[Rfam]
RNA sequence: UCGGGCCCAUGAAGGCCUGCACUGAAGACAGCUCGCUGUUGGUGCAGACCGGAUGCUUCCCUC
Numbered sequence: 001u002c003g004g005g006c007c008c009a010u011g012a013a014g015g016c017c018u019g020c021a022c023u024g025a026a027g028a029c030a031g032c033u034c035g036c037u038g039u040u041g042g043u044g045c046a047g048a049c050c051g052g053a054u055g056c057u058u059c060c061c062u063c
Stems, first nucleotide, its partner, number of pairs: 003061003014050002017047007029038003

This 63-nucleotide sequence from Halcyon senegalensis belongs to the Rfam family "Selenocysteine insertion sequence 1". NCBI's taxonomy places the organism under Eukaryota, Teleostomi, Euteleostomi, Tetrapoda, Halcyon. Its family is annotated with selenocysteine incorporation in the Gene Ontology. The incorporation of selenocysteine into a protein sequence is directed by an in-frame UGA codon (usually a stop codon) within the coding region of the mRNA. Selenoprotein mRNAs contain a conserved secondary structure in the 3' UTR that is required for the distinction of UGA stop from UGA selenocysteine. The selenocysteine insertion sequence (SECIS) is around 60 nt in length and adopts a hairpin structure which is sufficiently well-defined and conserved to act as a computational screen for selenoprotein genes. By type it is a cis-regulatory element.